[Rfam]
RNA sequence: AAUGCAUGACUCUGCCACUUGAGGACUUGCAGAAUUAAUGGAAUGCCAUCCUAAGGUUGUUGAGUUGCACAUU
Numbered sequence: 001a002a003u004g005c006a007u008g009a010c011u012c013u014g015c016c017a018c019u020u021g022a023g024g025a026c027u028u029g030c031a032g033a034a035u036u037a038a039u040g041g042a043a044u045g046c047c048a049u050c051c052u053a054a055g056g057u058u059g060u061u062g063a064g065u066u067g068c069a070c071a072u073u
Base pairs, nucleotide, nucleotide: 002072003071004070010064011063012062015059017057018056019055020054022052023051024050025049029046030045031044
A member of the RNA family "mir-676 microRNA precursor family" from Nannospalax galili, 73 nucleotides long.
Taxonomically the source falls in Nannospalax (Eukaryota, Vertebrata, Dipnotetrapodomorpha, Tetrapoda).
On this family, see Mineno et al., Nucleic Acids Res 2006: "The expression profile of microRNAs in mouse embryos".
The family has 12 seed sequences and 104 matches in Rfam 15.1.
Rfam links the family to the GO terms RISC complex and miRNA-mediated post-transcriptional gene silencing.